[Rfam]
RNA sequence: AUAUGCUACGUUAUAUAGGGAAUGGCUCGGCUCAAGCGCCGAUGAAGGUCGUGUCAAGCAGCGAUAUGCGCCGGGUAGACGCAAGAAGUCUAUGAUCCGGUGACCGCCGAAUGGGACUUCCUAUUCUUCGGAAUGUUCAGUAAUGAACGGGAACGCGGGGGAUUGAAACAUCUUAGUACCCGCAGGAAAAGAAAUCACCGAGAUGCCGUCAGUAAAGGCGAUCGAACGCGGCACAGAGCAAACCGAAUCCCUUGUAGAAAUAUGAGGGAGAUGUGGUGUAGUGGACCCAGAUACGUCUUAACCAACUAACCUGAAGUCGUCUGGAAAGACGCGCCAUAGUGGGUGAUAGCCCUUUAGGGGUAAGUUGGAAAGAUGAGUUUUGGUGCUCCGGAGUAACGUGCGUUGGAUAUCGCGCGUGAAGCUAGGGAACAUUCAUCUCUAACUCUAAAUACGUCUUGAGACCGAUAGCGCAGUAGUAGCGUGAGUGAAAACUGAAAAGCACCCUUGACGGGAGGUUAAAAGAGCCUGAAACUAUAUAACUAUAAACUGAUGUGGCGUGGAAGCUAAGAAACCUUUAUGGUGGAGCAGCGUUGCAUCAU
Numbered sequence: 001a002u003a004u005g006c007u008a009c010g011u012u013a014u015a016u017a018g019g020g021a022a023u024g025g026c027u028c029g030g031c032u033c034a035a036g037c038g039c040c041g042a043u044g045a046a047g048g049u050c051g052u053g054u055c056a057a058g059c060a061g062c063g064a065u066a067u068g069c070g071c072c073g074g075g076u077a078g079a080c081g082c083a084a085g086a087a088g089u090c091u092a093u094g095a096u097c098c099g100g101u102g103a104c105c106g107c108c109g110a111a112u113g114g115g116a117c118u119u120c121c122u123a124u125u126c127u128u129c130g131g132a133a134u135g136u137u138c139a140g141u142a143a144u145g146a147a148c149g150g151g152a153a154c155g156c157g158g159g160g161g162a163u164u165g166a167a168a169c170a171u172c173u174u175a176g177u178a179c180c181c182g183c184a185g186g187a188a189a190a191g192a193a194a195u196c197a198c199c200g201a202g203a204u205g206c207c208g209u210c211a212g213u214a215a216a217g218g219c220g221a222u223c224g225a226a227c228g229c230g231g232c233a234c235a236g237a238g239c240a241a242a243c244c245g246a247a248u249c250c251c252u253u254g255u256a257g258a259a260a261u262a263u264g265a266g267g268g269a270g271a272u273g274u275g276g277u278g279u280a281g282u283g284g285a286c287c288c289a290g291a292u293a294c295g296u297c298u299u300a301a302c303c304a305a306c307u308a309a310c311c312u313g314a315a316g317u318c319g320u321c322u323g324g325a326a327a328g329a330c331g332c333g334c335c336a337u338a339g340u341g342g343g344u345g346a347u348a349g350c351c352c353u354u355u356a357g358g359g360g361u362a363a364g365u366u367g368g369a370a371a372g373a374u375g376a377g378u379u380u381u382g383g384u385g386c387u388c389c390g391g392a393g394u395a396a397c398g399u400g401c402g403u404u405g406g407a408u409a410u411c412g413c414g415c416g417u418g419a420a421g422c423u424a425g426g427g428a429a430c431a432u433u434c435a436u437c438u439c440u441a442a443c444u445c446u447a448a449a450u451a452c453g454u455c456u457u458g459a460g461a462c463c464g465a466u467a468g469c470g471c472a473g474u475a476g477u478a479g480c481g482u483g484a485g486u487g488a489a490a491a492c493u494g495a496a497a498a499g500c501a502c503c504c505u506u507g508a509c510g511g512g513a514g515g516u517u518a519a520a521a522g523a524g525c526c527u528g529a530a531a532c533u534a535u536a537u538a539a540c541u542a543u544a545a546a547c548u549g550a551u552g553u554g555g556c557g558u559g560g561a562a563g564c565u566a567a568g569a570a571a572c573c574u575u576u577a578u579g580g581u582g583g584a585g586c587a588g589c590g591u592u593g594c595a596u597c598a599u
Stems, first nucleotide, its partner, number of pairs: 010540009024526001025492001029463002031460006037453002047108003050063003069102006078090003113122003136147004154185001155183005165172002195201002205232005216222001235446004243276003253264004287383004294375004310359003316332001318331004335339001341353003396417007424440005479486002549597010563586002571581003
Archaeal large subunit ribosomal RNA: a 599-nucleotide part of an RNA from Candidatus Methanomassiliicoccus intestinalis. The family's consensus secondary structure is taken from published work. Taxonomically the source falls in Candidatus Methanomassiliicoccus intestinalis (Archaea, Thermoplasmatota, Methanomassiliicoccaceae, Methanomassiliicoccus).